[Rfam]
RNA sequence: AUCUUUGCGCAUGGGGUUAUAUCCAAAGCUGUGAAGUCUUAACUGAGCUUGGAAUAUUGCUGGUUGAAAACUAAAUUCCAUACCCCGUGACGGUCGCGCACGCGUCGUCACGAAUUUCUGCAGGCGCACCACACGCG
Number, nucleotide and partner (000 for none) at each position: 001a000002u000003c000004u000005u000006u000007g000008c000009g000010c000011a000012u000013g000014g000015g000016g000017u000018u000019a000020u000021a000022u053023c052024c051025a050026a000027a049028g048029c047030u000031g000032u000033g000034a000035a044036g043037u042038c000039u000040u000041a000042a037043c036044u035045g000046a000047g029048c028049u027050u025051g024052g023053a022054a000055u000056a000057u000058u000059g000060c000061u000062g000063g000064u000065u000066g000067a000068a000069a000070a000071c000072u000073a000074a000075a000076u000077u000078c000079c000080a000081u000082a000083c000084c000085c000086c112087g111088u110089g109090a108091c107092g106093g105094u000095c104096g103097c102098g000099c000100a000101c000102g097103c096104g095105u093106c092107g091108u090109c089110a088111c087112g086113a000114a000115u000116u000117u000118c000119u000120g000121c000122a000123g000124g000125c137126g136127c135128a000129c000130c000131a000132c000133a000134c000135g127136c126137g125
Rfam assigns this 137-nucleotide RNA from Ostreococcus sp. 'lucimarinus' to the family "U4 spliceosomal RNA".
For this family Rfam cites "Cryo-EM Structure of a Pre-catalytic Human Spliceosome Primed for Activation" (Bertram et al., Cell, 2017).
It is annotated as a spliceosomal small nuclear RNA.